[Rfam]
RNA sequence: CGUUCACCCUUCGGGGCGCAUGAAAUGGGAGUAGGGAACGGGAUUCUCAU
Number, nucleotide and partner (000 for none) at each position: 001c040002g039003u038004u037005c036006a000007c016008c015009c014010u000011u000012c000013g000014g009015g008016g007017c000018g000019c000020a000021u000022g000023a000024a000025a050026u049027g048028g047029g046030a045031g044032u043033a000034g000035g000036g005037a004038a003039c002040g001041g000042g000043a032044u031045u030046c029047u028048c027049a026050u025